RNA sequence: GAAACCCUGUCCGAUGGUGAGGUCAUCCAAAGGUAAGACUGCCCAGAGGGCAGCGCCUCACCGUCCCGCAAGGGAUAGGACAGGGAGGAGGU
Dot-bracket structure: ....((((((((...((((((((.............(.(((((.....))))))))))))))(((((....))))).)))))))).......
A member of the RNA family "DUF1874 RNA", 92 nucleotides long. Rfam's curators put it in the seed alignment. Rfam classes the family as a cis-regulatory element.